[Rfam]
RNA: 6S / SsrS RNA
RNA sequence: AAAGUCCUAAUGUGUUCGUCGCGUAACCUAUUGUUUUGACCGAACAAUAAGUUAUACGGGAGCCCGGGUUUUCAGACCGCGUAAAUGCCUCAUCAUGAGGACUUACAAAUGUCUGAAACAGUGCACCCACCUGCCUAGAGCGGGUUCAAAACGAAGGAAUCGACGGCAUAAUUGGGACUUUC
Numbered sequence: 001a002a003a004g005u006c007c008u009a010a011u012g013u014g015u016u017c018g019u020c021g022c023g024u025a026a027c028c029u030a031u032u033g034u035u036u037u038g039a040c041c042g043a044a045c046a047a048u049a050a051g052u053u054a055u056a057c058g059g060g061a062g063c064c065c066g067g068g069u070u071u072u073c074a075g076a077c078c079g080c081g082u083a084a085a086u087g088c089c090u091c092a093u094c095a096u097g098a099g100g101a102c103u104u105a106c107a108a109a110u111g112u113c114u115g116a117a118a119c120a121g122u123g124c125a126c127c128c129a130c131c132u133g134c135c136u137a138g139a140g141c142g143g144g145u146u147c148a149a150a151a152c153g154a155a156g157g158a159a160u161c162g163a164c165g166g167c168a169u170a171a172u173u174g175g176g177a178c179u180u181u182c
Base pairs, nucleotide, nucleotide: 002180003179004178005177006176007175008174009173010172011171012169013168014167015166017165018164019163032153033152034151035150037148038147039146040144041143058128059127060126062124063123065121067119069118071117072116073115074114075113076112077111083104084103088100089099090098091097